Shown here is a 68-nucleotide sequence from Chryseobacterium aquaeductus, a member of the family "Fluoride riboswitch aptamer (crcB RNA motif)".
Lineage of the source: Bacteria > Pseudomonadati > Flavobacteriales > Weeksellaceae > Chryseobacterium.
The match comes from Rfam's covariance-model search (50 bits).
RNA sequence: CACAUAAAAGGAAAUGGUGUUCUUCCUUACCCAACCGCUUUUAAUGAGCUGAUGACGCCUGAUUUAUU
Numbered sequence: 001c002a003c004a005u006a007a008a009a010g011g012a013a014a015u016g017g018u019g020u021u022c023u024u025c026c027u028u029a030c031c032c033a034a035c036c037g038c039u040u041u042u043a044a045u046g047a048g049c050u051g052a053u054g055a056c057g058c059c060u061g062a063u064u065u066a067u068u
Stems, first nucleotide, its partner, number of pairs: 010026004016059006037049004